[Rfam]
RNA sequence: AUUAAUAACGAGGUCGUGAACCUCACAAAUUAAA
Numbered sequence: 001a002u003u004a005a006u007a008a009c010g011a012g013g014u015c016g017u018g019a020a021c022c023u024c025a026c027a028a029a030u031u032a033a034a
Stems, first nucleotide, its partner, number of pairs: 002033005010024005
The family of this 34-nucleotide RNA sequence from Capnocytophaga cynodegmi is "S16-Flavobacteria ribosomal protein leader". The literature on the family includes a 2020 paper in BMC Microbiol by Eckert and Weinberg, "Discovery of 20 novel ribosomal leader candidates in bacteria and archaea". It scores 50 bits against the family's covariance model.